RNA sequence: GAUUAAUCGAUCCUAACGAUCAACAAACUUUUUAUUUGAAAGUUUGUUCGUUCGGCUCGAGUUAUCG
Number, nucleotide and partner (000 for none) at each position: 001g066002a065003u064004u000005a062006a000007u060008c059009g058010a057011u000012c055013c054014u000015a000016a000017c050018g049019a000020u000021c000022a000023a047024c046025a045026a044027a000028c042029u041030u000031u000032u000033u000034a000035u000036u000037u000038g000039a000040a000041a029042g028043u000044u026045u025046g024047u023048u000049c018050g017051u000052u000053c000054g013055g012056c000057u010058c009059g008060a007061g000062u005063u000064a003065u002066c001067g000
Shown here is a 67-nucleotide sequence from Ooceraea biroi, a member of the family "mir-375 microRNA precursor family".
A search with the family's covariance model found it, with a score of 50 bits.
Pairs were carried over by alignment from the consensus structure, which was predicted with RNAalifold.
Lineage of the source: Eukaryota > Opisthokonta > Eumetazoa > Apocrita > Ooceraea.
Rfam 15.1 lists 824 matches to the family in 730 species.